[Rfam]
RNA sequence: GUAGGGUACGGAGACAUGUGCCCGAUCACUCUUGGGGGCAAGAUGGUGGGCACCUUGUGCGCCAUAGCUGGAGUCCUGACCAUCGCCUUGCCCGUGCCCGUCAUCGUCUCCAAC
Numbered sequence: 001g002u003a004g005g006g007u008a009c010g011g012a013g014a015c016a017u018g019u020g021c022c023c024g025a026u027c028a029c030u031c032u033u034g035g036g037g038g039c040a041a042g043a044u045g046g047u048g049g050g051c052a053c054c055u056u057g058u059g060c061g062c063c064a065u066a067g068c069u070g071g072a073g074u075c076c077u078g079a080c081c082a083u084c085g086c087c088u089u090g091c092c093c094g095u096g097c098c099c100g101u102c103a104u105c106g107u108c109u110c111c112a113a114c
Base pairs, nucleotide, nucleotide: 001114002113004111005110008107009106010105011104013102014101015100018097019096020095021094037077038076040074049063050062051061